The record is a 59-nucleotide RNA sequence from Gottschalkia purinilytica, which matches "Fluoride riboswitch aptamer (crcB RNA motif)" in Rfam.
Pairs were carried over by alignment from the consensus structure, which is taken from published work.
A search with the family's covariance model found it, with a score of 52 bits.
RNA sequence: CUUAAUAAUGGUGAUGGAGUUCACCAGAAUCGCUGAAUGCUAAUGACUCCUACAAGAAA
Number, nucleotide and partner (000 for none) at each position: 001c000002u000003u000004a000005a000006u000007a000008a000009u000010g025011g024012u023013g022014a000015u000016g050017g049018a048019g047020u046021u045022c013023a012024c011025c010026a000027g000028a000029a000030u000031c000032g040033c039034u000035g000036a000037a000038u000039g033040c032041u000042a000043a000044u000045g021046a020047c019048u018049c017050c016051u000052a000053c000054a000055a000056g000057a000058a000059a000